[Rfam]
RNA sequence: UGUACUUACGUGUGCGUUUGUUUAACUUGUGGACAAAUACAGAUAGGUGCAAAAAAUAAAUCUUCUUUUUGCAAUCGAGAACUUACUGUUCAGUAUGAGUUCUGAUACAUAUAAGAAAGGCUAUU
Numbered sequence: 001u002g003u004a005c006u007u008a009c010g011u012g013u014g015c016g017u018u019u020g021u022u023u024a025a026c027u028u029g030u031g032g033a034c035a036a037a038u039a040c041a042g043a044u045a046g047g048u049g050c051a052a053a054a055a056a057u058a059a060a061u062c063u064u065c066u067u068u069u070u071g072c073a074a075u076c077g078a079g080a081a082c083u084u085a086c087u088g089u090u091c092a093g094u095a096u097g098a099g100u101u102c103u104g105a106u107a108c109a110u111a112u113a114a115g116a117a118a119g120g121c122u123a124u125u
Stems, first nucleotide, its partner, number of pairs: 001051008011041001014040001016038006026031001060122001062120003067116005078103008